Rfam assigns this 81-nucleotide sequence from Azospirillum griseum to the family "chrB-a RNA". Pairs were carried over by alignment from the consensus structure, which is taken from published work. It is annotated as a cis-regulatory element.
[Rfam]
RNA sequence: GGCCAGGGGAUGUGCGAUCUCCCCGUGAGGCUUCGGCCCAAGCAUCGCGUCCAGGCCCCACACAUUUGGGAGGACGACGUG
Numbered sequence: 001g002g003c004c005a006g007g008g009g010a011u012g013u014g015c016g017a018u019c020u021c022c023c024c025g026u027g028a029g030g031c032u033u034c035g036g037c038c039c040a041a042g043c044a045u046c047g048c049g050u051c052c053a054g055g056c057c058c059c060a061c062a063c064a065u066u067u068g069g070g071a072g073g074a075c076g077a078c079g080u081g
Base pairs, nucleotide, nucleotide: 006024007023008022009021010020047078048076049075050074051073052072